[Rfam]
RNA sequence: UUGCCUAGGGUUAGUAUUACCCCUAGGCAACUUUUGUCGCAUGUCGCA
Numbered sequence: 001u002u003g004c005c006u007a008g009g010g011u012u013a014g015u016a017u018u019a020c021c022c023c024u025a026g027g028c029a030a031c032u033u034u035u036g037u038c039g040c041a042u043g044u045c046g047c048a
Stems, first nucleotide, its partner, number of pairs: 001030010